[Rfam]
Nucleotides: 072
Base pairs, nucleotide, nucleotide: 043060044059045058046057047056048055049054
Number, partner (000 for none) and nucleotide at each position: 001000g002000u003000g004000u005000u006000u007000u008000u009000c010000a011000u012000g013000g014000u015000a016000u017000u018000a019000g020000a021000u022000u023000a024000u025000u026000a027000a028000g029000g030000u031000u032000a033000u034000u035000a036000a037000a038000g039000g040000a041000u042000u043060g044059a045058u046057u047056g048055u049054c050000g051000u052000g053000a054049g055048a056047c057046a058045a059044u060043c061000a062000a063000u064000u065000u066000c067000u068000u069000c070000u071000u072000u
About this RNA:
This 72-nucleotide RNA from Prevotella koreensis belongs to the Rfam family "Bacteroidetes FopS (family of paralogous sRNAs)". From the family's description: The RNA-binding protein RbpB and BTncRNA_FopS sRNA are involved in the post-transcription regulation of polysaccharide utilisation loci (PUL). FopS sRNAs function as post-transcriptional repressors by binding to the vicinity of the start codon of the first mRNA of target PUL polycistrons, typically corresponding to the cognate SusC homolog, impeding translation of the respective glycan transporter. The literature on the family includes a 2025 paper in Nat Commun by Ruttiger et al., "The global RNA-binding protein RbpB is a regulator of polysaccharide utilization in Bacteroides thetaiotaomicron". Its family is annotated with sRNA-mediated gene silencing in the Gene Ontology. Rfam classes the family as a small RNA. Lineage of the source: Bacteria > Bacteroidota > Bacteroidia > Bacteroidales > Prevotella. It scores 73 bits against the family's covariance model.